Shown here is a 91-nucleotide RNA sequence from Brevundimonas diminuta, a member of the family "nhaA-II RNA". The sequence is in the family's curated seed alignment. The family's consensus secondary structure is taken from published work.
[Rfam]
RNA sequence: AUCAGGUCUCGCGUGAACCGAUCCCGAGGCCAGGCCGGCGCCGCCUUGCGCGCGAAUCCGGUCCGGCGUCCGUCGAUAACCUGACGCCACG
Numbered sequence: 001a002u003c004a005g006g007u008c009u010c011g012c013g014u015g016a017a018c019c020g021a022u023c024c025c026g027a028g029g030c031c032a033g034g035c036c037g038g039c040g041c042c043g044c045c046u047u048g049c050g051c052g053c054g055a056a057u058c059c060g061g062u063c064c065g066g067c068g069u070c071c072g073u074c075g076a077u078a079a080c081c082u083g084a085c086g087c088c089a090c091g
Base pairs, nucleotide, nucleotide: 005031006030007029008028009027010026011025033063034062035061036060037059038058039054040053041052042050043049065088066087067086068085069084070083